[Rfam]
RNA sequence: GUAAAGAGGGCUUUUUAAUGCCUUUUACUAUUCAGGUUAUCCUCACGCUCAGACUCGCCAAAGUUUUGAGAGCGUGGGGAUUUUU
Dot-bracket structure: ....(((((((........))))))).............((((((((((((((((......)))))...))))))))))).....
RNA: S. pyogenes small RNA 779816
Organism: Streptococcus phage EJ-1